This 60-nucleotide sequence belongs to the Rfam family "Glutamine riboswitch aptamer (glnA leader)". Its family is annotated with glutamine binding in the Gene Ontology.

[Rfam]
RNA sequence: AUCGUUCAAUUUAGGAUUUUCCUAGAUCGGAAGUAAGUCGAAAGGCUGAAGGAACGCAUG
Numbered sequence: 001a002u003c004g005u006u007c008a009a010u011u012u013a014g015g016a017u018u019u020u021c022c023u024a025g026a027u028c029g030g031a032a033g034u035a036a037g038u039c040g041a042a043a044g045g046c047u048g049a050a051g052g053a054a055c056g057c058a059u060g
Stems, first nucleotide, its partner, number of pairs: 003056005009027007030057001036047003
For this family Rfam cites "Bacterial aptamers that selectively bind glutamine" (Ames and Breaker, RNA Biol, 2011).